Shown here is a 101-nucleotide RNA from Capsicum annuum, a member of the family "Small nucleolar RNA snoR99". The family's RNA type in Rfam is H/ACA-box small nucleolar RNA.
RNA sequence: UUGUUUUAGGGAUGAACAAAUCGUUGAUAAUUUAAUUCAUUCAUCUCUUUGUCAUUAUCACAGUGUUGUUGUUUUGAUGAUCAUUAUCAAAUAGUAUGAUU
Numbered sequence: 001u002u003g004u005u006u007u008a009g010g011g012a013u014g015a016a017c018a019a020a021u022c023g024u025u026g027a028u029a030a031u032u033u034a035a036u037u038c039a040u041u042c043a044u045c046u047c048u049u050u051g052u053c054a055u056u057a058u059c060a061c062a063g064u065g066u067u068g069u070u071g072u073u074u075u076g077a078u079g080a081u082c083a084u085u086a087u088c089a090a091a092u093a094g095u096a097u098g099a100u101u
Base pairs, nucleotide, nucleotide: 037094039092040091041090051081052080053079054078055077056076057075
The family's consensus secondary structure was predicted with WAR. A reference for the family is Marker et al. (2002), "Experimental RNomics: identification of 140 candidates for small non-messenger RNAs in the plant Arabidopsis thaliana", Curr Biol.